[Rfam]
RNA sequence: UUGAGCUCUAUAAACUUGUCCUGCUAAGAAUGCAAUAUAAGUGGGGCGCCUGGGGGGCUCAGUCGGUAAGUGGCUGCCUUAGGCUCAGGUCAUGAUUUCAGGGUCCUGGGAUGGAGCCCGACAUCA
Numbered sequence: 001u002u003g004a005g006c007u008c009u010a011u012a013a014a015c016u017u018g019u020c021c022u023g024c025u026a027a028g029a030a031u032g033c034a035a036u037a038u039a040a041g042u043g044g045g046g047c048g049c050c051u052g053g054g055g056g057g058c059u060c061a062g063u064c065g066g067u068a069a070g071u072g073g074c075u076g077c078c079u080u081a082g083g084c085u086c087a088g089g090u091c092a093u094g095a096u097u098u099c100a101g102g103g104u105c106c107u108g109g110g111a112u113g114g115a116g117c118c119c120g121a122c123a124u125c126a
Base pairs, nucleotide, nucleotide: 002061003060004059005058018047019046020045021044022043023042024041025040027038072118073117074116075115077113084110085109086108087107088106